The record is a 57-nucleotide RNA sequence, which matches "L20-Deltaproteobacteria ribosomal protein leader" in Rfam. Rfam classes the family as a cis-regulatory leader.

RNA sequence: AUCCCUGAAUCGCGAGGAACGGCCCCUUGCGCAUCGGGCAAAUUAAAACUGAAGGAG
Number, nucleotide and partner (000 for none) at each position: 001a000002u000003c038004c037005c036006u000007g035008a034009a000010u000011c031012g030013c029014g028015a027016g026017g025018a000019a000020c000021g000022g000023c000024c000025c017026c016027u015028u014029g013030c012031g011032c000033a000034u008035c007036g005037g004038g003039c000040a000041a000042a000043u000044u000045a000046a000047a000048a000049c000050u000051g000052a000053a000054g000055g000056a000057g000